The record is a 67-nucleotide RNA from Frieseomelitta varia, which matches "mir-375 microRNA precursor family" in Rfam. Its family is annotated with miRNA-mediated post-transcriptional gene silencing and RISC complex in the Gene Ontology. The base pairs follow the family's consensus structure, which was predicted with RNAalifold. A reference for the family is Chen et al. (2005), "The developmental miRNA profiles of zebrafish as determined by small RNA cloning", Genes Dev.
[Rfam]
RNA sequence: GAUGCAUCGAUCCUAACGAUCAACAAACUUUUCACUUGAAAGUUUGUUCGUUCGGCUCGAGUUAUUA
Numbered sequence: 001g002a003u004g005c006a007u008c009g010a011u012c013c014u015a016a017c018g019a020u021c022a023a024c025a026a027a028c029u030u031u032u033c034a035c036u037u038g039a040a041a042g043u044u045u046g047u048u049c050g051u052u053c054g055g056c057u058c059g060a061g062u063u064a065u066u067a
Base pairs, nucleotide, nucleotide: 001066002065003064004062005061008059009058010057012055013054017050018049023047024046025045026044028042029041